[Rfam]
Nucleotides: 123
Stems, first nucleotide, its partner, number of pairs: 009049003013041003017037002019034002022031001065116005075111001077109001080106004088099004
Number, partner (000 for none) and nucleotide at each position: 001000a002000a003000g004000c005000a006000a007000c008000a009049c010048u011047c012000u013041g014040u015039g016000g017037c018036a019034g020033a021000a022031g023000a024000u025000c026000a027000a028000a029000a030000c031022u032000g033020u034019c035000u036018u037017g038000a039015c040014a041013c042000c043000a044000u045000u046000u047011g048010a049009g050000c051000u052000u053000g054000c055000u056000a057000u058000a059000g060000c061000a062000a063000c064000a065116a066115a067114g068113u069112c070000c071000a072000a073000c074000c075111u076000a077109u078000u079000c080106c081105a082104g083103c084000a085000u086000u087000c088099u089098c090097u091096c092000u093000u094000c095000u096091g097090a098089g099088a100000c101000a102000a103083g104082u105081u106080g107000u108000u109077a110000c111075a112069g113068a114067c115066u116065u117000a118000g119000u120000g121000u122000u123000u
Shown here is a 123-nucleotide sequence from Phyllostomus discolor, a member of the family "Small nucleolar RNA SNORA28". The match comes from Rfam's covariance-model search (91 bits). ACA28 is a member of the H/ACA class of snoRNA that guide the sites of modification of uridines to pseudouridines. For this family Rfam cites "RNomics: an experimental approach that identifies 201 candidates for novel, small, non-messenger RNAs in mouse" (Huttenhofer et al., EMBO J, 2001). Rfam classes the family as an H/ACA-box small nucleolar RNA.